[Rfam]
RNA sequence: UCACCCCACCGCGGGAGCUCGGGUACGGCCGGGCUGAGAGGGCGAACCGCACGCGUCGCCGACCGCAUGAACCUGUCCGGGUAAUGCCGGCGUAGGGAGAGCGUUUCCUUCAUGU
Numbered sequence: 001u002c003a004c005c006c007c008a009c010c011g012c013g014g015g016a017g018c019u020c021g022g023g024u025a026c027g028g029c030c031g032g033g034c035u036g037a038g039a040g041g042g043c044g045a046a047c048c049g050c051a052c053g054c055g056u057c058g059c060c061g062a063c064c065g066c067a068u069g070a071a072c073c074u075g076u077c078c079g080g081g082u083a084a085u086g087c088c089g090g091c092g093u094a095g096g097g098a099g100a101g102c103g104u105u106u107c108c109u110u111c112a113u114g115u
Stems, first nucleotide, its partner, number of pairs: 006103001010099001011066004017034005041060005072096004077090004
Notes:
This 115-nucleotide RNA from Nocardia gamkensis belongs to the Rfam family "TPP riboswitch aptamer (THI element)". The base pairs follow the family's consensus structure, which is taken from published work.